RNA sequence: AAACAACCCCCUAUGUAUUGGAUCUUUGGCAGUUUUGGCUCUCAAUGUCACUUUUGACUUAGUCUUCGCUGACGUGGCACCCACAUCCCUUAAGUAAGGUGCCACAAGUCGACCAUUGUGGGUGUCACGUCAACGAAGACUAAACCAAAAGUGAUAUUGGAGGCCAAAACUGUCAAAGAUACAAUACAUAUAAGACUGUUU
Numbered sequence: 001a002a003a004c005a006a007c008c009c010c011c012u013a014u015g016u017a018u019u020g021g022a023u024c025u026u027u028g029g030c031a032g033u034u035u036u037g038g039c040u041c042u043c044a045a046u047g048u049c050a051c052u053u054u055u056g057a058c059u060u061a062g063u064c065u066u067c068g069c070u071g072a073c074g075u076g077g078c079a080c081c082c083a084c085a086u087c088c089c090u091u092a093a094g095u096a097a098g099g100u101g102c103c104a105c106a107a108g109u110c111g112a113c114c115a116u117u118g119u120g121g122g123u124g125u126c127a128c129g130u131c132a133a134c135g136a137a138g139a140c141u142a143a144a145c146c147a148a149a150a151g152u153g154a155u156a157u158u159g160g161a162g163g164c165c166a167a168a169a170c171u172g173u174c175a176a177a178g179a180u181a182c183a184a185u186a187c188a189u190a191u192a193a194g195a196c197u198g199u200u201u
Stems, first nucleotide, its partner, number of pairs: 001201002004198002008194001012190009022180019042160004072130002075127008
The family of this 201-nucleotide RNA sequence from Medicago truncatula is "MIR2619 microRNA precursor family". Gene Ontology terms of the family: RISC complex and miRNA-mediated post-transcriptional gene silencing. Lineage of the source: Eukaryota > Viridiplantae > eudicotyledons > Pentapetalae > Medicago.